[Rfam]
RNA sequence: UGGACGCUUUAUUUAGCUAUUGAACUGUUUUGUGACUCUCUGUCAAAGAACAAAUUGUUCUCUGUCAGAGAGUGACAGAACAGUUCAAUAGCUUAAGCGUCCAG
Number, nucleotide and partner (000 for none) at each position: 001u000002g000003g000004a000005c000006g102007c000008u000009u000010u000011a000012u096013u095014u000015a093016g092017c091018u090019a089020u088021u087022g086023a085024a084025c083026u082027g081028u080029u069030u068031u067032g066033u000034g000035a063036c000037u000038c000039u000040c000041u000042g000043u000044c000045a000046a000047a000048g000049a059050a058051c057052a056053a000054a000055u000056u052057g051058u050059u049060c000061u000062c000063u035064g000065u000066c032067a031068g030069a029070g000071a000072g000073u000074g000075a000076c000077a000078g000079a000080a028081c027082a026083g025084u024085u023086c022087a021088a020089u019090a018091g017092c016093u015094u000095a013096a012097g000098c000099g000100u000101c000102c006103a000104g000
Rfam assigns this 104-nucleotide RNA from Plutella xylostella to the family "mir-8517 microRNA precursor family". A search with the family's covariance model found it, with a score of 75 bits. The base pairs follow the family's consensus structure, which was predicted with RNAalifold.